[Rfam]
RNA sequence: UGAGCUGAUCGUUGUUGUUAUUCUUCAAUUUCUGCAGGUAACUUAGGAAGCGUUUCUUGAGCUUCCCUGGGAUGAGCGUUUGGGAGAGCUGAUUCUGCAGCCCAGAGAGUAGUCUCAGGGCAUCCUCUGGAGCCUGACCUGUGACCGUCGCAUCAUAGACCGCCAGUAGACCUGGGAGCAGAUUCACCGCCGCGGCCGUCUCCUUUAAGGUGCUGUG
Number, nucleotide and partner (000 for none) at each position: 001u020002g019003a018004g000005c000006u000007g000008a000009u000010c000011g000012u000013u000014g000015u000016u000017g000018u003019u002020a001021u000022u000023c000024u000025u000026c000027a000028a000029u000030u000031u000032c000033u000034g000035c000036a000037g000038g000039u000040a000041a000042c000043u000044u000045a000046g000047g000048a000049a000050g193051c192052g191053u000054u000055u000056c000057u000058u000059g127060a126061g125062c000063u000064u085065c084066c083067c082068u000069g000070g000071g000072a000073u000074g000075a000076g000077c000078g000079u000080u000081u000082g067083g066084g065085a064086g000087a000088g000089c000090u000091g124092a123093u000094u000095c000096u000097g121098c120099a000100g000101c000102c119103c118104a000105g000106a000107g000108a000109g000110u000111a000112g000113u000114c000115u000116c000117a000118g103119g102120g098121c097122a000123u092124c091125c061126u060127c059128u000129g188130g187131a000132g000133c000134c181135u180136g179137a000138c000139c158140u157141g156142u155143g154144a153145c000146c000147g000148u000149c000150g000151c000152a000153u144154c143155a142156u141157a140158g139159a000160c000161c000162g000163c175164c174165a173166g172167u000168a000169g000170a000171c000172c166173u165174g164175g163176g000177a000178g000179c136180a135181g134182a000183u000184u000185c000186a000187c130188c129189g000190c000191c052192g051193c050194g000195g000196c000197c000198g000199u000200c000201u000202c000203c000204u000205u000206u000207a000208a000209g000210g000211u000212g000213c000214u000215g000216u000217g000

Notes: This 217-nucleotide sequence from Lymphocryptovirus humangamma4 belongs to the Rfam family "Epstein-Barr virus nuclear antigen (EBNA) IRES". Rfam describes the family as follows. This family represents an Epstein-Barr virus internal ribosome entry site (IRES) which is found in the U leader exon in the 5' UTR of the Epstein-Barr nuclear antigen 1 (EBNA1) gene. The EBNA IRES allows EBNA1 translation to occur under situations where initiation from the 5' cap structure and ribosome scanning is reduced. Rfam links the family to the GO term ribosome binding. The family's consensus secondary structure was predicted with PFOLD.